About this RNA
Rfam assigns this 255-nucleotide RNA sequence from Sporolactobacillus inulinus to the family "BsrG". The family's RNA type in Rfam is small RNA. The family's consensus secondary structure was predicted with WAR. The match comes from Rfam's covariance-model search (64 bits). Rfam describes the family as follows. bsrE, bsrG and bsrH pair through intermolecular interactions with antisense sRNAs. They form type I toxin/antitoxin system that includes an mRNA encoding for a short, toxic peptide (bsrE, bsrG and bsrH) and an antitoxin that is comprised of an antisense RNA. bsrG encodes a 39-amino-acid toxin, and the 180 nucleotide antisense sRNA called SR4 acts as the antitoxin (they overlap by 123 nucleotides). SR4 interaction with the 3'UTR of bsrG RNA promotes bsrG degradation and inhibits its translation. BsrG interferes with cell envelope biosynthesis, causes membrane invaginations and delocalisation of the cell wall synthesis and initiates autolysis. bsrE RNA encodes 30 amino-acid toxin peptide. Its antitoxin gene, SR5 overlaps by 112 nucleotides at the 3' end of bsrE. SR5 also overlaps bsrG from nucleotide 163 to 52 (Rfam overlap check). The antitoxin SR5 promotes bsrE degradation but unlike SR4 it does not directly inhibits toxin mRNA translation. The organism belongs to Sporolactobacillus, within Bacteria. Rfam 15.1 lists 614 matches to the family in 343 species.

RNA sequence: GUAAUAAGAUGAUGCAUAUGAGCGGAUGUGGUGACGCCCUCUGGAAGGGGGUGGUCCCAAUGACAGUAUUUCAAGCGAUAUCACUGAUGAUUAGUUUUGGAGUGCUUGUCCUGAUGCUGUCAGACAGAAAGAAAUAAUCCGCCUCAUAUGCUCUGGCAGGAGCUGAAGCGGAUCGGUCAAAAACGAUCUAGCUGGAAUGCACUGCAUCCGCUCUACGCGGAUAUUGCCGUUCCGUCAGUGUUAGCACCACUGACG
Numbered sequence: 001g002u003a004a005u006a007a008g009a010u011g012a013u014g015c016a017u018a019u020g021a022g023c024g025g026a027u028g029u030g031g032u033g034a035c036g037c038c039c040u041c042u043g044g045a046a047g048g049g050g051g052u053g054g055u056c057c058c059a060a061u062g063a064c065a066g067u068a069u070u071u072c073a074a075g076c077g078a079u080a081u082c083a084c085u086g087a088u089g090a091u092u093a094g095u096u097u098u099g100g101a102g103u104g105c106u107u108g109u110c111c112u113g114a115u116g117c118u119g120u121c122a123g124a125c126a127g128a129a130a131g132a133a134a135u136a137a138u139c140c141g142c143c144u145c146a147u148a149u150g151c152u153c154u155g156g157c158a159g160g161a162g163c164u165g166a167a168g169c170g171g172a173u174c175g176g177u178c179a180a181a182a183a184c185g186a187u188c189u190a191g192c193u194g195g196a197a198u199g200c201a202c203u204g205c206a207u208c209c210g211c212u213c214u215a216c217g218c219g220g221a222u223a224u225u226g227c228c229g230u231u232c233c234g235u236c237a238g239u240g241u242u243a244g245c246a247c248c249a250c251u252g253a254c255g
Stems, first nucleotide, its partner, number of pairs: 001227005009207003015150008025139003032054001034052001037050004062121007076089002100112001102110001208220004233255008242246001